The family of this 87-nucleotide RNA sequence from Terribacillus saccharophilus is "SAM riboswitch aptamer (S box leader)".

RNA sequence: CUCUUAUCCAGAGAGGCGGAGGGACUGGCCCUAUGAAGCUUCAGCAACAGACUGUUUGUACUGUGCUAAUUCCAGACUAGAUAAGAA
Numbered sequence: 001c002u003c004u005u006a007u008c009c010a011g012a013g014a015g016g017c018g019g020a021g022g023g024a025c026u027g028g029c030c031c032u033a034u035g036a037a038g039c040u041u042c043a044g045c046a047a048c049a050g051a052c053u054g055u056u057u058g059u060a061c062u063g064u065g066c067u068a069a070u071u072c073c074a075g076a077c078u079a080g081a082u083a084a085g086a087a
Stems, first nucleotide, its partner, number of pairs: 002086007013042005021031003025075004043067004048063002051059002071079001
The organism belongs to Terribacillus, within Bacteria. The SAM riboswitch is found upstream of a number of genes which code for proteins involved in methionine or cysteine biosynthesis in Gram-positive bacteria.